RNA sequence: CCACUUGAUGAUGAAGAACUGAUGGCAUACAUCCUCAAUGGAUUGGAUCUAAACUUCAAUCCACUGGUCAUUUCCCUUGUUGCAAGGGUUGAACUGUUUUCUCUCAACGAGCUGUACUCUCGGAUGCUCAGUUUGAGA
Numbered sequence: 001c002c003a004c005u006u007g008a009u010g011a012u013g014a015a016g017a018a019c020u021g022a023u024g025g026c027a028u029a030c031a032u033c034c035u036c037a038a039u040g041g042a043u044u045g046g047a048u049c050u051a052a053a054c055u056u057c058a059a060u061c062c063a064c065u066g067g068u069c070a071u072u073u074c075c076c077u078u079g080u081u082g083c084a085a086g087g088g089u090u091g092a093a094c095u096g097u098u099u100u101c102u103c104u105c106a107a108c109g110a111g112c113u114g115u116a117c118u119c120u121c122g123g124a125u126g127c128u129c130a131g132u133u134u135g136a137g138a
Base pairs, nucleotide, nucleotide: 004137005136006135007134008133088108089107090106091105092104
RNA: Small nucleolar RNA Z247
Organism: Miscanthus lutarioriparius